RNA sequence: AGCGCCACGGGGUCGACGGCGCGGGUGACGGUGAGGUAGUCGCGGAUGGCGGUGCCGUGGCGGUCCUC
Numbered sequence: 001a002g003c004g005c006c007a008c009g010g011g012g013u014c015g016a017c018g019g020c021g022c023g024g025g026u027g028a029c030g031g032u033g034a035g036g037u038a039g040u041c042g043c044g045g046a047u048g049g050c051g052g053u054g055c056c057g058u059g060g061c062g063g064u065c066c067u068c
Stems, first nucleotide, its partner, number of pairs: 005062001008059002012029002016026002035056004040052004
This 68-nucleotide RNA from Nonomuraea phyllanthi belongs to the Rfam family "ASdes TB sRNA".
Rfam classes the family as a small RNA.
Rfam 15.1 lists 1,192 matches to the family in 825 species.
The family's consensus secondary structure is taken from published work.
For this family Rfam cites "Identification of small RNAs in Mycobacterium tuberculosis" (Arnvig and Young, Mol Microbiol, 2009).